[Rfam]
RNA sequence: UACCACCUGGCUACCUGUAUAACAUAAAGUAUUUACAAAUUUUUUGAAAUUUGUAAAUACUUUAUGUUAUACAGGUAGCCAGGUGGUA
Numbered sequence: 001u002a003c004c005a006c007c008u009g010g011c012u013a014c015c016u017g018u019a020u021a022a023c024a025u026a027a028a029g030u031a032u033u034u035a036c037a038a039a040u041u042u043u044u045u046g047a048a049a050u051u052u053g054u055a056a057a058u059a060c061u062u063u064a065u066g067u068u069a070u071a072c073a074g075g076u077a078g079c080c081a082g083g084u085g086g087u088a
Base pairs, nucleotide, nucleotide: 001088002087003086004085005084006083008081009080010079011078012077013076014075016073017072018071019070020069021068022067023066024065027062028061029060
Shown here is an 88-nucleotide sequence from Paramuricea clavata, a member of the family "mir-160 microRNA precursor family". The family has 7 seed sequences and 1,502 matches in Rfam 15.1. It scores 50 bits against the family's covariance model. Taxonomically the source falls in Paramuricea (Eukaryota, Opisthokonta, Malacalcyonacea, Plexauridae). The base pairs follow the family's consensus structure, which was predicted with PFOLD. Its family is annotated with RISC complex and miRNA-mediated post-transcriptional gene silencing in the Gene Ontology.